Shown here is a 95-nucleotide RNA from Carex littledalei, a member of the family "Small nucleolar RNA snoR109".
Rfam links the family to the GO terms nucleolus and RNA processing.
The base pairs follow the family's consensus structure, which was predicted with WAR.
By type it is an H/ACA-box small nucleolar RNA.
[Rfam]
RNA sequence: UGGCUGUAGCAAUAGAAACAAAUUUGGGGAAGAAAAUCUGGUCGGAUUGGUACUUGUUUGCAAUUGUCAACCCGCUUACCGUUCUUCCCAUAUUA
Numbered sequence: 001u002g003g004c005u006g007u008a009g010c011a012a013u014a015g016a017a018a019c020a021a022a023u024u025u026g027g028g029g030a031a032g033a034a035a036a037u038c039u040g041g042u043c044g045g046a047u048u049g050g051u052a053c054u055u056g057u058u059u060g061c062a063a064u065u066g067u068c069a070a071c072c073c074g075c076u077u078a079c080c081g082u083u084c085u086u087c088c089c090a091u092a093u094u095a
Stems, first nucleotide, its partner, number of pairs: 027089008040076003044072002047070006